[Rfam]
RNA sequence: UGACGGAAGAACACUACCAGGAGUGGAUUGUGCUGCUUAAUUUAACUCAACGCGAGAAAACUUACCAGGGUCGAGUCAGUUGUAGAUCGCUAGCGUGAAACUGACGAGAGUGGUGCAUGGCCAUUGGAAAUUGAUGGGGCGACUUUUAGCUUAAAUGCUGUAACCAGUGAGAUCUUCUAGACAGGUGCCUGAUGGCACAGGAGGGAGAAGGCUAUAAUAGGUCCGUGAUGCCCUCAGAUAUCCUGGGCUGCAAGCGCAAUACAAUAUCCAUAUACUAUAUAAAGAAGUCUUGGAUGAGGAGGAUUAGCUCUUGUAAAUGAGCUAUGAAUGAGGAAUUCCUAUUAACAGUGUCUCAUUAAGACACGGUGAAUGUGUCCCUGUUCUUUGUACACACCGCCCGUCACUAUUUCAGAUGGCCAUGCAGAUGAAGAGCUUAGGUUCUGAAUAUUCAUGGCUAGAUAAAGUACAAGUCGUAACAAGGUUGCGGUAGGAGAACCUGCCGCAGGAUCAUUA
Numbered sequence: 001u002g003a004c005g006g007a008a009g010a011a012c013a014c015u016a017c018c019a020g021g022a023g024u025g026g027a028u029u030g031u032g033c034u035g036c037u038u039a040a041u042u043u044a045a046c047u048c049a050a051c052g053c054g055a056g057a058a059a060a061c062u063u064a065c066c067a068g069g070g071u072c073g074a075g076u077c078a079g080u081u082g083u084a085g086a087u088c089g090c091u092a093g094c095g096u097g098a099a100a101c102u103g104a105c106g107a108g109a110g111u112g113g114u115g116c117a118u119g120g121c122c123a124u125u126g127g128a129a130a131u132u133g134a135u136g137g138g139g140c141g142a143c144u145u146u147u148a149g150c151u152u153a154a155a156u157g158c159u160g161u162a163a164c165c166a167g168u169g170a171g172a173u174c175u176u177c178u179a180g181a182c183a184g185g186u187g188c189c190u191g192a193u194g195g196c197a198c199a200g201g202a203g204g205g206a207g208a209a210g211g212c213u214a215u216a217a218u219a220g221g222u223c224c225g226u227g228a229u230g231c232c233c234u235c236a237g238a239u240a241u242c243c244u245g246g247g248c249u250g251c252a253a254g255c256g257c258a259a260u261a262c263a264a265u266a267u268c269c270a271u272a273u274a275c276u277a278u279a280u281a282a283a284g285a286a287g288u289c290u291u292g293g294a295u296g297a298g299g300a301g302g303a304u305u306a307g308c309u310c311u312u313g314u315a316a317a318u319g320a321g322c323u324a325u326g327a328a329u330g331a332g333g334a335a336u337u338c339c340u341a342u343u344a345a346c347a348g349u350g351u352c353u354c355a356u357u358a359a360g361a362c363a364c365g366g367u368g369a370a371u372g373u374g375u376c377c378c379u380g381u382u383c384u385u386u387g388u389a390c391a392c393a394c395c396g397c398c399c400g401u402c403a404c405u406a407u408u409u410c411a412g413a414u415g416g417c418c419a420u421g422c423a424g425a426u427g428a429a430g431a432g433c434u435u436a437g438g439u440u441c442u443g444a445a446u447a448u449u450c451a452u453g454g455c456u457a458g459a460u461a462a463a464g465u466a467c468a469a470g471u472c473g474u475a476a477c478a479a480g481g482u483u484g485c486g487g488u489a490g491g492a493g494a495a496c497c498u499g500c501c502g503c504a505g506g507a508u509c510a511u512u513a
Base pairs, nucleotide, nucleotide: 001391002390003388004387005386007385008384009383010382011381012380013379016375017374020339021338022337023336024335025262027260028259029258030257031256032255033254034253035251036250041056042055043054065246066245067244068243069242070241071240075105076104077103078102079101080100088095089094109234110233112232113231114230115229118228119226120222121221122220123218124217125216126215130168131167132166133165135163136145137144138143147160148159149158150157174210175209176208177207182201185198186197187196188195189194266295267294268293269292270291300329305324306323307322308321309320310319345367346366348364349363350362351361352360396477399473400472402470405466406465407464408463409462411460414457415456416455417454418453419452420451421450423448425446426445429442430441431440432439433438482505483504484503485502486501487500488499489498490497491496
Shown here is a 513-nucleotide part of an RNA from Enterospora canceri, a member of the family "Microsporidia small subunit ribosomal RNA". Pairs were carried over by alignment from the consensus structure, which is taken from published work. Its family is annotated with ribosome and structural constituent of ribosome in the Gene Ontology. A search with the family's covariance model found it, with a score of 1211 bits.